Overview:
This 61-nucleotide sequence from Ictalurus punctatus belongs to the Rfam family "mir-29 microRNA precursor family". The family has 168 seed sequences and 3,328 matches in Rfam 15.1. The base pairs follow the family's consensus structure, which was predicted with PFOLD. On this family, see Ambros, Cell 2001: "microRNAs: tiny regulators with great potential". Rfam's curators write: This family represents the microRNA (miRNA) precursors mir-29. Its family is annotated with gene silencing by miRNA and RISC complex in the Gene Ontology. The sequence is in the family's curated seed alignment.
RNA sequence: GCUGAAUUCAGAUGGUGCCAUAGAGUAUUUUAUGGCAUCUAGCACCAUUUGAAAUCAGUGU
Numbered sequence: 001g002c003u004g005a006a007u008u009c010a011g012a013u014g015g016u017g018c019c020a021u022a023g024a025g026u027a028u029u030u031u032a033u034g035g036c037a038u039c040u041a042g043c044a045c046c047a048u049u050u051g052a053a054a055u056c057a058g059u060g061u
Stems, first nucleotide, its partner, number of pairs: 001059005007053004012048006021041004
Dot-bracket structure: (((((.((((.((((((...((((.............)))).)))))).)))).)))))..